[Rfam]
RNA sequence: AGUCUAAUCAACUGUACGUUGCUCUGGAUAAGAGCAUCUGCCAAAUGCCAUGUA
Number, nucleotide and partner (000 for none) at each position: 001a000002g000003u000004c000005u000006a000007a000008u000009c000010a000011a000012c000013u043014g041015u040016a039017c000018g000019u000020u036021g035022c034023u033024c032025u031026g000027g000028a000029u000030a000031a025032g024033a023034g022035c021036a020037u000038c000039u016040g015041c014042c000043a013044a000045a000046u000047g000048c000049c000050a000051u000052g000053u000054a000

A member of the RNA family "UnaL2 LINE 3' element" from Conger conger, 54 nucleotides long. It scores 57 bits against the family's covariance model. Lineage of the source: Eukaryota > Opisthokonta > Craniata > Neopterygii > Conger.